[Rfam]
RNA: Small nucleolar RNA snoR77
Organism: Cannabis sativa
RNA sequence: AAGCAACACUUGUGUGAUUUUUUAUGACAGAUGAUGUGUUAUACUGCUCAUAAAUUUUUUUAUUGCUCUUUAGAUUUGCUGAGGUAACAUUGAAGCUGGUCUAGUAAGCUUUAGUACAUU
Number, nucleotide and partner (000 for none) at each position: 001a000002a040003g039004c038005a037006a000007c036008a035009c033010u000011u031012g000013u029014g028015u027016g000017a025018u000019u000020u000021u000022u000023u000024a000025u017026g000027a015028c014029a013030g000031a011032u000033g009034a000035u008036g007037u005038g004039u003040u002041a000042u000043a000044c000045u000046g000047c000048u000049c000050a000051u000052a000053a000054a000055u000056u000057u000058u000059u000060u114061u113062a112063u000064u000065g109066c108067u107068c000069u000070u000071u000072a102073g101074a100075u099076u098077u000078g096079c095080u094081g000082a000083g088084g000085u000086a000087a000088c083089a000090u000091u000092g000093a000094a080095g079096c078097u000098g076099g075100u074101c073102u072103a000104g000105u000106a000107a067108g066109c065110u000111u000112u062113a061114g060115u000116a000117c000118a000119u000120u000